[Rfam]
RNA sequence: GGUUUGUAGGCAGUGUAGUUAGCUGAUUGUUUUUGUGCUAGCUGCAAUCACUAACCAUACUGCCAACACAAC
Numbered sequence: 001g002g003u004u005u006g007u008a009g010g011c012a013g014u015g016u017a018g019u020u021a022g023c024u025g026a027u028u029g030u031u032u033u034u035g036u037g038c039u040a041g042c043u044g045c046a047a048u049c050a051c052u053a054a055c056c057a058u059a060c061u062g063c064c065a066a067c068a069c070a071a072c
Stems, first nucleotide, its partner, number of pairs: 003070001005068002009064002012061005018055005024050007
Rfam assigns this 72-nucleotide RNA sequence from Conger conger to the family "mir-34 microRNA precursor family". Pairs were carried over by alignment from the consensus structure, which was predicted with RNAalifold. About the family: Human mir-34a was discovered computationally and later experimentally verified. The mature sequence is excised from the 5' arm of the hairpin. A reference for the family is Lim et al. (2003), "Vertebrate microRNA genes", Science.